[Rfam]
Rfam assigns this 174-nucleotide sequence from Intestinibaculum porci to the family "Lysine riboswitch aptamer". A search with the family's covariance model found it, with a score of 76 bits. Lineage of the source: Bacteria > Bacillati > Erysipelotrichia > Erysipelotrichales > Intestinibaculum.

RNA sequence: AGCUCAAAUAGAGGCGCAAGGACUAUGAAUUCAGUAUUAUAUAAAUGGGUGCAGCCAGAUAUUGAAGGAGGAGGAUUGCCGAAGGAGUCAGGUUCUGCAUGGUUUGGCUAACUGGUGGGCUAGAGAAUAUCUAUCUCACUGUCACAAGACAUCUUGUGGAGAGCUAUUGAAAAU
Numbered sequence: 001a002g003c004u005c006a007a008a009u010a011g012a013g014g015c016g017c018a019a020g021g022a023c024u025a026u027g028a029a030u031u032c033a034g035u036a037u038u039a040u041a042u043a044a045a046u047g048g049g050u051g052c053a054g055c056c057a058g059a060u061a062u063u064g065a066a067g068g069a070g071g072a073g074g075a076u077u078g079c080c081g082a083a084g085g086a087g088u089c090a091g092g093u094u095c096u097g098c099a100u101g102g103u104u105u106g107g108c109u110a111a112c113u114g115g116u117g118g119g120c121u122a123g124a125g126a127a128u129a130u131c132u133a134u135c136u137c138a139c140u141g142u143c144a145c146a147a148g149a150c151a152u153c154u155u156g157u158g159g160a161g162a163g164c165u166a167u168u169g170a171a172a173a174u
Base pairs, nucleotide, nucleotide: 007168008167009166010165011164016079017078018077019076024071032064033063034062035061036060037059038058083113084112086109087108088107089106090105091104092103093102114140115139116138117137118136119135121133122132123131124130142159143158144157145156146155147154148153